[Rfam]
Rfam assigns this 76-nucleotide sequence from Crocodylus porosus to the family "Mammalian CPEB3 ribozyme". The source organism's lineage runs through Eukaryota, Gnathostomata, Euteleostomi, Amniota and Crocodylus.
RNA sequence: UUUGCAAGUUUGAGGCCACAGCAGAAGUGCUCAUGGCAUGGCCCUUUCAGAUUCCAAUGGAUCUGCAAAUUCUGCU
Numbered sequence: 001u002u003u004g005c006a007a008g009u010u011u012g013a014g015g016c017c018a019c020a021g022c023a024g025a026a027g028u029g030c031u032c033a034u035g036g037c038a039u040g041g042c043c044c045u046u047u048c049a050g051a052u053u054c055c056a057a058u059g060g061a062u063c064u065g066c067a068a069a070u071u072c073u074g075c076u
Base pairs, nucleotide, nucleotide: 012044014043015042016041017040020076021075022074023073024072025071026070027039028038029037048065049064050063051062052061053060054059

It scores 54 bits against the family's covariance model. The family has 14 seed sequences and 5,706 matches in Rfam 15.1. Rfam links the family to the GO term RNA nuclease activity.